[Rfam]
RNA sequence: UUUCCCCGGCGUUGCAGGGGCUUAAAUGCGACGACAACUCAUGCGCUGAGUGGCAGCGCGGUUACAAACUAAAUCUAAGUUGUGGAGGUAUU
Numbered sequence: 001u002u003u004c005c006c007c008g009g010c011g012u013u014g015c016a017g018g019g020g021c022u023u024a025a026a027u028g029c030g031a032c033g034a035c036a037a038c039u040c041a042u043g044c045g046c047u048g049a050g051u052g053g054c055a056g057c058g059c060g061g062u063u064a065c066a067a068a069c070u071a072a073a074u075c076u077a078a079g080u081u082g083u084g085g086a087g088g089u090a091u092u
Stems, first nucleotide, its partner, number of pairs: 005019003010033005035082005043059005
Overview: GP20-a RNA: a 92-nucleotide RNA. It is annotated as a cis-regulatory element. The base pairs follow the family's consensus structure, which is taken from published work.